[Rfam]
RNA: Archaeal large subunit ribosomal RNA, nucleotides 2690 to 2955
RNA sequence: GGCUGUCUGAGGGAAAGGUGGCUCUAGUACGAGAGGAACGGGCCGUCGGUGCCUCUAGUCGAUCGGUUGUCUGACAAGGCAUUGCCGAGCAGCCACGCACCAAGAGAUAAGGGCUGAAAGCAUCUAAGCCCGAAGUUCAUCCUGAAAAUAGACAGCCUUUUCCUUCGGGAACAAGGACUCCCAUAGAACAUGGGUUUGAUAGGUUAGGGGUGUAAGUGCCAAGGUUUUCCGAGGCAUUAAGCCCGCUAAUACUAAUAGUUCAAGUG
Dot-bracket structure: ((((((((..((((..((((((((...............))))))))(((((...(.(....((((((((((....)))))..)))))....).).)))))..(((....(((((...........)))))....))).))))......)))))))).................((((.((((.......)))).....(((((((((((.....(((((..(......)..)))))....))).))))).)))...)))).....